[Rfam]
mir-30 microRNA precursor family: a 78-nucleotide RNA sequence from Sander lucioperca. A search with the family's covariance model found it, with a score of 55 bits. On this family, see Ambros, Cell 2001: "microRNAs: tiny regulators with great potential". From the family's description: This family consists of the mammalian microRNA (miRNA) precursor mir-30a. Animal miRNAs are transcribed as ~70nt precursors and subsequently processed by the Dicer enzyme to give a ~22nt product. In this case the mature sequence comes from both the 3' (miR-30) and 5' (mir-97-6) arms of the precursor. The extents of the hairpin precursors are not generally known and are estimated based on hairpin prediction. The products are thought to have regulatory roles through complementarity to mRNA. The involvement of Dicer in miRNA processing suggests a relationship with the phenomenon of RNA interference. miRNAs are numbered based on the sequence of the mature RNA. Lineage of the source: Eukaryota > Craniata > Euteleostomi > Perciformes > Sander.

RNA sequence: UCCGUACAUGUAAACAUCCUACACUCAGCUGUGAUCAAGUGCAGCAGAGGCUGAGAGAAGGUUGUUUACUUGGACUGG
Numbered sequence: 001u002c003c004g005u006a007c008a009u010g011u012a013a014a015c016a017u018c019c020u021a022c023a024c025u026c027a028g029c030u031g032u033g034a035u036c037a038a039g040u041g042c043a044g045c046a047g048a049g050g051c052u053g054a055g056a057g058a059a060g061g062u063u064g065u066u067u068a069c070u071u072g073g074a075c076u077g078g
Stems, first nucleotide, its partner, number of pairs: 002077001004075002008071001010069007018061003022057001024055007